MIR159 microRNA precursor family: a 192-nucleotide sequence from Populus trichocarpa. On this family, see Jones-Rhoades and Bartel, Mol Cell 2004: "Computational identification of plant microRNAs and their targets, including a stress-induced miRNA". The family has 66 seed sequences and 3,649 matches in Rfam 15.1. Taxonomically the source falls in Populus (Eukaryota, Magnoliopsida, Gunneridae, fabids). The sequence is in the family's curated seed alignment. Its family is annotated with RISC complex and miRNA-mediated post-transcriptional gene silencing in the Gene Ontology.
[Rfam]
RNA sequence: GGUGGGAGAGAGCUUCCUUCAGCCCACUCAUGGAUAGGAGAAAGGGGUUGAAUUAGCUGCCGACUCAUUCAUUCAAGCACCAGUAGAAAAAGGGGAAUGGAUAUUCUUUUGCUACUGUGAUUGUGUGAAUGAUGCGGGAGAUAAUUUUACAUCCCCUCUUUUUCUGUGCUUGGACUGAAGGGAGCUCCUUCC
Number, nucleotide and partner (000 for none) at each position: 001g000002g000003u000004g000005g000006g000007a000008g000009a000010g187011a186012g185013c184014u183015u182016c181017c180018u000019u000020c177021a176022g175023c000024c173025c172026a171027c000028u000029c000030a000031u000032g000033g164034a000035u000036a000037g000038g000039a000040g000041a000042a000043a000044g000045g000046g000047g000048u000049u000050g000051a000052a000053u000054u000055a000056g000057c140058u139059g000060c137061c136062g135063a000064c000065u000066c131067a130068u129069u128070c000071a000072u000073u000074c123075a122076a121077g000078c000079a000080c000081c000082a000083g000084u000085a000086g000087a000088a000089a000090a000091a000092g000093g000094g000095g000096a000097a000098u000099g000100g000101a000102u000103a000104u000105u000106c000107u000108u000109u000110u000111g000112c000113u000114a000115c000116u000117g000118u000119g000120a000121u076122u075123g074124u000125g000126u000127g000128a069129a068130u067131g066132a000133u000134g000135c062136g061137g060138g000139a058140g057141a000142u000143a000144a000145u000146u000147u000148u000149a000150c000151a000152u000153c000154c000155c000156c000157u000158c000159u000160u000161u000162u000163u000164c033165u000166g000167u000168g000169c000170u000171u026172g025173g024174a000175c022176u021177g020178a000179a000180g017181g016182g015183a014184g013185c012186u011187c010188c000189u000190u000191c000192c000